drz-agam-1 ribozyme: a 79-nucleotide RNA from Hermetia illucens. The literature on the family includes a 2009 paper in Science by Webb et al., "Widespread occurrence of self-cleaving ribozymes".

RNA sequence: UACUAUCAAACCCUAUCUCCAUCUCCACGUGGUGACCGCUGGGAGCUUUUUCUCAAUGAAAAGCUGCAGACUAAGAAGG
Number, nucleotide and partner (000 for none) at each position: 001u000002a000003c000004u000005a000006u000007c000008a000009a000010a000011c000012c079013c078014u077015a000016u075017c000018u073019c000020c000021a033022u032023c031024u000025c000026c000027a000028c000029g000030u000031g023032g022033u021034g000035a000036c000037c000038g000039c000040u000041g000042g000043g000044a065045g064046c063047u062048u061049u060050u059051u000052c058053u000054c000055a000056a000057u000058g052059a050060a049061a048062a047063g046064c045065u044066g000067c000068a000069g000070a000071c000072u000073a018074a000075g016076a000077a014078g013079g012